About this RNA: A member of the RNA family "Rhizobiales sRNA Atu_Ti4" from Martinezella rhizogenes, 100 nucleotides long. The literature on the family includes a 2012 paper in RNA Biol by Wilms et al., "Deep sequencing uncovers numerous small RNAs on all four replicons of the plant pathogen Agrobacterium tumefaciens".
RNA sequence: AGCAGUGCUGCGCAGUGAUCGGAUAGGCCCUCUCUUUUGAGGGAUCAUCUUUUAGUUGUCUUCUCCCCAGCAAAGAAAGAUGCAAGCGCGGCGGUAGCUA
Numbered sequence: 001a002g003c004a005g006u007g008c009u010g011c012g013c014a015g016u017g018a019u020c021g022g023a024u025a026g027g028c029c030c031u032c033u034c035u036u037u038u039g040a041g042g043g044a045u046c047a048u049c050u051u052u053u054a055g056u057u058g059u060c061u062u063c064u065c066c067c068c069a070g071c072a073a074a075g076a077a078a079g080a081u082g083c084a085a086g087c088g089c090g091g092c093g094g095u096a097g098c099u100a
Base pairs, nucleotide, nucleotide: 005098006097007095008094009093010092011091015087016086039065040064041063042062043061046058047057049055
The base pairs follow the family's consensus structure, which was predicted with WAR.